[Rfam]
RNA sequence: GUUACCUUUAAUUCAGUCCUGUGAGGCUGGCAAGGUGGAACAGAAGAGCUCUGUUUAAUAGAAAUCGAAUGGUAUUAUUCCAUAUCUGAUUUUGCACGUUCACAUACACCUUGCCAUGAUUAGGCAAGGUGUUUUUAUAUU
Numbered sequence: 001g002u003u004a005c006c007u008u009u010a011a012u013u014c015a016g017u018c019c020u021g022u023g024a025g026g027c028u029g030g031c032a033a034g035g036u037g038g039a040a041c042a043g044a045a046g047a048g049c050u051c052u053g054u055u056u057a058a059u060a061g062a063a064a065u066c067g068a069a070u071g072g073u074a075u076u077a078u079u080c081c082a083u084a085u086c087u088g089a090u091u092u093u094g095c096a097c098g099u100u101c102a103c104a105u106a107c108a109c110c111u112u113g114c115c116a117u118g119a120u121u122a123g124g125c126a127a128g129g130u131g132u133u134u135u136u137a138u139a140u141u
Stems, first nucleotide, its partner, number of pairs: 003037006013030006059088004064083002067080005102136001104134001106132010